Shown here is a 100-nucleotide RNA sequence from Nodensvirus spm2, a member of the family "wcaG RNA".
Nucleotides: 100
Base pairs, nucleotide, nucleotide: 010029011028012026013025015024040055041054042053043052044051057074058073059072060071064086065085066084067083068082069081
Number, partner (000 for none) and nucleotide at each position: 001000c002000c003000g004000a005000g006000u007000c008000u009000u010029g011028g012026a013025a014000u015024g016000a017000c018000u019000u020000a021000a022000a023000u024015c025013u026012u027000a028011c029010c030000c031000u032000g033000g034000u035000g036000c037000g038000g039000a040055u041054g042053g043052g044051a045000u046000c047000u048000c049000u050000c051044u052043c053042c054041c055040g056000c057074c058073u059072g060071g061000u062000u063000u064086c065085u066084u067083g068082c069081u070000u071060c072059c073058a074057g075000u076000c077000a078000a079000a080000a081069a082068g083067c084066a085065a086064g087000u088000g089000g090000u091000g092000g093000u094000g095000c096000c097000a098000a099000a100000u
Annotation:
The sequence is in the family's curated seed alignment. By type it is a cis-regulatory element.